The record is a 119-nucleotide RNA sequence from Chitinimonas sp. BJB300, which matches "ALIL pseudoknot" in Rfam. By type it is a cis-regulatory element. A search with the family's covariance model found it, with a score of 70 bits. The family's consensus secondary structure is taken from published work. Rfam links the family to the GO term positive regulation of translational frameshifting. A reference for the family is Mazauric et al. (2008), "Apical loop-internal loop RNA pseudoknots: a new type of stimulator of -1 translational frameshifting in bacteria", J Biol Chem. The organism belongs to Chitinimonas, within Bacteria.

RNA sequence: UGCGUUUUUCGCCCAGGCGGAGCUCGACCGCCGCUUCAAGUCCUGAGGCGCUUUGUCGAUCGACACCGGGAAACCUUCGGGGUCGACCCGCAUCGGCGGCAAGUCUGCUGGGCGCAUCU
Number, nucleotide and partner (000 for none) at each position: 001u000002g000003c000004g000005u000006u000007u000008u000009u000010c000011g000012c000013c000014c000015a000016g032017g031018c030019g029020g028021a000022g000023c000024u000025c000026g000027a000028c020029c019030g018031c017032c016033g000034c000035u000036u000037c000038a000039a000040g000041u000042c000043c000044u000045g000046a000047g000048g000049c000050g000051c000052u000053u000054u000055g000056u000057c000058g000059a000060u000061c000062g000063a000064c000065a000066c000067c000068g000069g000070g000071a000072a000073a000074c000075c000076u000077u000078c000079g118080g117081g000082g115083u000084c000085g000086a000087c000088c000089c114090g113091c000092a000093u111094c110095g109096g108097c107098g106099g105100c000101a000102a000103g000104u000105c099106u098107g097108c096109u095110g094111g093112g000113c090114g089115c082116a000117u080118c079119u000